[Rfam]
RNA sequence: GGGGCUGAUCGGUUUCGACUUGGGACGUCAGUUCCAGGAGAAGCGGGUCGAGGAGCCAGCGACAUCUCGUAAACGACCGCUGGAAACCACAACUGCCAACGCUAAGCGCAGUUCCUUCGCUCUCGCCGCCUGAGCGGUGAUCGAAGCGUCAGACCGGGUGCCUGUCUCCGACCCGGACCCUGGCGUCAUCUAGGAGACUUGCUGCCCGUCCCGGGUCACAGGGGGACGAGCGGGACUCUUCUGUGACUGGGCCUGUCGGCGACGUGUCAGUGCGAGCGCCGGGGCCGAGCAGAACGCCACCGCUGACUGCACCCGGAGAAGACCUGGUUCGACGCCGAAGGACGCGGGUUCGAUUCCCGCCAGCUCCACCA
Numbered sequence: 001g002g003g004g005c006u007g008a009u010c011g012g013u014u015u016c017g018a019c020u021u022g023g024g025a026c027g028u029c030a031g032u033u034c035c036a037g038g039a040g041a042a043g044c045g046g047g048u049c050g051a052g053g054a055g056c057c058a059g060c061g062a063c064a065u066c067u068c069g070u071a072a073a074c075g076a077c078c079g080c081u082g083g084a085a086a087c088c089a090c091a092a093c094u095g096c097c098a099a100c101g102c103u104a105a106g107c108g109c110a111g112u113u114c115c116u117u118c119g120c121u122c123u124c125g126c127c128g129c130c131u132g133a134g135c136g137g138u139g140a141u142c143g144a145a146g147c148g149u150c151a152g153a154c155c156g157g158g159u160g161c162c163u164g165u166c167u168c169c170g171a172c173c174c175g176g177a178c179c180c181u182g183g184c185g186u187c188a189u190c191u192a193g194g195a196g197a198c199u200u201g202c203u204g205c206c207c208g209u210c211c212c213g214g215g216u217c218a219c220a221g222g223g224g225g226a227c228g229a230g231c232g233g234g235a236c237u238c239u240u241c242u243g244u245g246a247c248u249g250g251g252c253c254u255g256u257c258g259g260c261g262a263c264g265u266g267u268c269a270g271u272g273c274g275a276g277c278g279c280c281g282g283g284g285c286c287g288a289g290c291a292g293a294a295c296g297c298c299a300c301c302g303c304u305g306a307c308u309g310c311a312c313c314c315g316g317a318g319a320a321g322a323c324c325u326g327g328u329u330c331g332a333c334g335c336c337g338a339a340g341g342a343c344g345c346g347g348g349u350u351c352g353a354u355u356c357c358c359g360c361c362a363g364c365u366c367c368a369c370c371a
Stems, first nucleotide, its partner, number of pairs: 001367007019340003023336002028331001031330001034327005044315005049069005056083006123140007147185006154176004164198006202233004207228004214248006250286005257281003263274002266307004270301001344360005
Background
transfer-messenger RNA: a 371-nucleotide RNA from Nocardioides flavescens. Bacterial tmRNA, also known as 10Sa RNA or SsrA, is named for its dual tRNA and mRNA-like properties. Its role is to liberate the mRNA from a stalled ribosome.